The family of this 106-nucleotide RNA sequence from Chryseobacterium sp. FH1 is "Flavo-1 RNA". It scores 72 bits against the family's covariance model. Rfam 15.1 lists 7,497 matches to the family in 411 species. The base pairs follow the family's consensus structure, which is taken from published work.

RNA sequence: CCAUAGCCCCGAUUGCAACGGCAUCCUUUUUUUGUUUUUGGAUCAAUUACUUUUUGAUGACCAAACGUCGUAACAAAAAAAGAUAUAGUGGAAAGCGGGAUCAAGC
Numbered sequence: 001c002c003a004u005a006g007c008c009c010c011g012a013u014u015g016c017a018a019c020g021g022c023a024u025c026c027u028u029u030u031u032u033u034g035u036u037u038u039u040g041g042a043u044c045a046a047u048u049a050c051u052u053u054u055u056g057a058u059g060a061c062c063a064a065a066c067g068u069c070g071u072a073a074c075a076a077a078a079a080a081a082g083a084u085a086u087a088g089u090g091g092a093a094a095g096c097g098g099g100a101u102c103a104a105g106c
Base pairs, nucleotide, nucleotide: 009098010097011096013094014093018089019088023084024083025082029079030078031077032076033075034074035073036072